[Rfam]
RNA sequence: GAGAGUAACAUGUGCGCGAGUCAUUGGGCGUUACGAAACCCAAAGGCGCAGUGAAAGUAAAGGCUUGGCUUGUCUGAGCUGAGGUGAGAUCCUGUCGUUUCUCAUGCGCGGUACUACCAAGCUUCGAGCGGCAGGCGCAUCACCGGCCCGUCCCAUGGCGUGGAGGCAGCCUCGUGCUUGCUCAUCGUCGGGGCGGAGCAUGAGCGUACAUGUUGAGACCCGAAAGAUGGUGAACUAUGCUUGCGCAGGUUGAAGCCAGAGGAAACUCUGGUGGAGGACCGCAGCGAUUCUGACGUGCAAAUCGAUCGUCAAACGUGAGUAUAGGGGCGAAAGACUAAUCGAACCAUCUAGUAGCUGGUU
Numbered sequence: 001g002a003g004a005g006u007a008a009c010a011u012g013u014g015c016g017c018g019a020g021u022c023a024u025u026g027g028g029c030g031u032u033a034c035g036a037a038a039c040c041c042a043a044a045g046g047c048g049c050a051g052u053g054a055a056a057g058u059a060a061a062g063g064c065u066u067g068g069c070u071u072g073u074c075u076g077a078g079c080u081g082a083g084g085u086g087a088g089a090u091c092c093u094g095u096c097g098u099u100u101c102u103c104a105u106g107c108g109c110g111g112u113a114c115u116a117c118c119a120a121g122c123u124u125c126g127a128g129c130g131g132c133a134g135g136c137g138c139a140u141c142a143c144c145g146g147c148c149c150g151u152c153c154c155a156u157g158g159c160g161u162g163g164a165g166g167c168a169g170c171c172u173c174g175u176g177c178u179u180g181c182u183c184a185u186c187g188u189c190g191g192g193g194c195g196g197a198g199c200a201u202g203a204g205c206g207u208a209c210a211u212g213u214u215g216a217g218a219c220c221c222g223a224a225a226g227a228u229g230g231u232g233a234a235c236u237a238u239g240c241u242u243g244c245g246c247a248g249g250u251u252g253a254a255g256c257c258a259g260a261g262g263a264a265a266c267u268c269u270g271g272u273g274g275a276g277g278a279c280c281g282c283a284g285c286g287a288u289u290c291u292g293a294c295g296u297g298c299a300a301a302u303c304g305a306u307c308g309u310c311a312a313a314c315g316u317g318a319g320u321a322u323a324g325g326g327g328c329g330a331a332a333g334a335c336u337a338a339u340c341g342a343a344c345c346a347u348c349u350a351g352u353a354g355c356u357g358g359u360u
Base pairs, nucleotide, nucleotide: 006215007214008213009212010211011210012209013208014207015206016205017204020047021046022045025042026041027040028039051058052057083144084143085142086141087140091135092134093133094132095131096130097129098128099127100126146199147198148196149195150194151192152191153190157186158185219358220357222355226348227347228346229345230344231343235324236323237322238321239320240319241318242317243316244315245314248280249279250278251277255272256271257270258269259268260267261266284309285308286307287306289305290304292303293302326336327335
RNA: Eukaryotic large subunit ribosomal RNA, nucleotides 996 to 1355